This 94-nucleotide RNA from a Caulobacteraceae bacterium belongs to the Rfam family "Glycine riboswitch aptamer". The organism belongs to Caulobacteraceae, within Bacteria.
[Rfam]
RNA sequence: CCCUGUCUCGCGGGAGACAUCGGGAUUCUUGGGUCCCGAGGCCGAAGGCGCAACCGCCCCGGAAACGCUCAGGCAAACGGACCGCGCGACACAA
Numbered sequence: 001c002c003c004u005g006u007c008u009c010g011c012g013g014g015a016g017a018c019a020u021c022g023g024g025a026u027u028c029u030u031g032g033g034u035c036c037c038g039a040g041g042c043c044g045a046a047g048g049c050g051c052a053a054c055c056g057c058c059c060c061g062g063a064a065a066c067g068c069u070c071a072g073g074c075a076a077a078c079g080g081a082c083c084g085c086g087c088g089a090c091a092c093a094a
Stems, first nucleotide, its partner, number of pairs: 006089002009086005020039004041074003044070002048068003054062002
Annotation:
The base pairs follow the family's consensus structure.